A member of the RNA family "Small nucleolar RNA R44/J54/Z268 family", 84 nucleotides long.
The base pairs follow the family's consensus structure, which was predicted with PFOLD.

RNA sequence: AGUGCAAGUGACGAUGAAUAGACAGGGACAUCAGAAGUUCUAUAAUGAUGACUAAUGUCUAGAUGGGAAUCUCUCUGAUGCACA
Numbered sequence: 001a002g003u004g005c006a007a008g009u010g011a012c013g014a015u016g017a018a019u020a021g022a023c024a025g026g027g028a029c030a031u032c033a034g035a036a037g038u039u040c041u042a043u044a045a046u047g048a049u050g051a052c053u054a055a056u057g058u059c060u061a062g063a064u065g066g067g068a069a070u071c072u073c074u075c076u077g078a079u080g081c082a083c084a
Stems, first nucleotide, its partner, number of pairs: 002083005